[Rfam]
RNA: Eukaryotic small subunit ribosomal RNA, nucleotides 668 to 1242
Organism: Murchisonella sp. AD-2009
Nucleotides: 575
Base pairs, nucleotide, nucleotide: 012574013573014572020571022423024421025420029416030415031414314410315409318405322401326398328396329395331393332376333375336372337371338370340368341367342366343365347358348357349356384391385390428468429467430466432464437463438462442458443457444456445455479570480569481568482563483562484561486546487545488544491541492540493539494538495537500533501532502531503530504529550557551556
Number, partner (000 for none) and nucleotide at each position: 001000g002000u003000g004000a005000a006000u007000u008000g009000u010000u011000g012574c013573g014572g015000u016000u017000a018000a019000a020571a021000c022423g023000c024421u025420c026000a027000u028000a029416g030415u031414c032000g033000g034000a035000u036000c037000u038000c039000a040000g041000g042000u043000a044000u045000c046000c047000u048000u049000u050000u051000u052000g053000a054000g055000u056000u057000g058000u059000g060000c061000a062000g063000c064000g065000u066000g067000c068000a069000a070000u071000a072000a073000c074000a075000a076000c077000g078000c079000c080000g081000c082000u083000g084000g085000u086000a087000a088000u089000g090000u091000u092000u093000g094000c095000g096000c097000a098000u099000g100000u101000u102000g103000u104000a105000c106000a107000c108000c109000u110000u111000u112000a113000g114000c115000g116000a117000u118000c119000c120000u121000a122000u123000u124000a125000a126000a127000g128000u129000c130000g131000u132000u133000u134000g135000g136000c137000a138000g139000u140000c141000u142000c143000c144000c145000u146000u147000g148000g149000u150000a151000c152000u153000a154000u155000u156000u157000a158000g159000u160000u161000a162000g163000u164000g165000c166000c167000u168000u169000g170000g171000g172000c173000a174000u175000c176000c177000c178000g179000a180000c181000g182000u183000u184000c185000g186000g187000u188000u189000a190000c191000c192000g193000u194000g195000a196000a197000c198000a199000a200000a201000u202000u203000g204000a205000a206000g207000u208000g209000u210000u211000c212000a213000a214000a215000g216000c217000a218000g219000g220000c221000u222000a223000g224000c225000a226000a227000c228000g229000c230000u231000u232000g233000u234000a235000c236000a237000a238000u239000c240000g241000c242000g243000c244000a245000u246000g247000g248000a249000a250000u251000a252000a253000c254000a255000g256000a257000a258000g259000a260000g261000g262000a263000c264000c265000u266000c267000g268000g269000g270000u271000g272000a273000a274000a275000u276000u277000u278000u279000g280000u281000u282000g283000g284000u285000u286000u287000u288000g289000a290000g291000c292000a293000g294000c295000c296000g297000c298000g299000a300000g301000g302000u303000a304000a305000u306000g307000a308000u309000u310000a311000a312000u313000c314410a315409g316000u317000c318405c319000a320000g321000a322401c323000g324000a325000g326398g327000a328396c329395a330000u331393g332376c333375g334000u335000a336372u337371u338370u339000c340368g341367u342366g343365g344000g345000u346000a347358a348357a349356g350000g351000u352000g353000a354000a355000a356349u357348u358347u359000a360000g361000a362000g363000a364000u365343c366342c367341a368340c369000u370338g371337a372336g373000g374000a375333c376332g377000a378000a379000c380000u381000g382000a383000a384391g385390c386000g387000a388000a389000g390385g391384c392000g393331c394000u395329u396328g397000g398326c399000a400000c401322g402000a403000a404000c405318g406000g407000u408000u409315c410314u411000a412000u413000u414031g415030a416029u417000c418000a419000a420025g421024a422000a423022c424000g425000a426000u427000g428468g429467u430466c431000a432464a433000g434000c435000u436000a437463g438462u439000c440000a441000a442458g443457a444456c445455g446000a447000u448000c449000a450000g451000a452000u453000a454000c455445c456444g457443u458442c459000g460000u461000a462438g463437u464432u465000c466430g467429a468428c469000a470000g471000u472000a473000a474000a475000c476000a477000a478000u479570g480569c481568c482563a483562a484561c485000u486546g487545g488544c489000c490000a491541u492540u493539c494538g495537g496000g497000u498000u499000a500533g501532u502531u503530a504529g505000c506000a507000u508000u509000u510000g511000u512000g513000u514000u515000a516000g517000c518000a519000u520000g521000u522000u523000u524000u525000a526000u527000c528000u529504u530503u531502a532501a533500c534000c535000u536000a537495u538494c539493g540492a541491g542000c543000g544488g545487u546486c547000u548000u549000c550557g551556g552000g553000a554000a555000a556551c557550c558000a559000a560000a561484g562483u563482u564000u565000u566000u567000g568481g569480g570479u571020u572014c573013c574012g575000g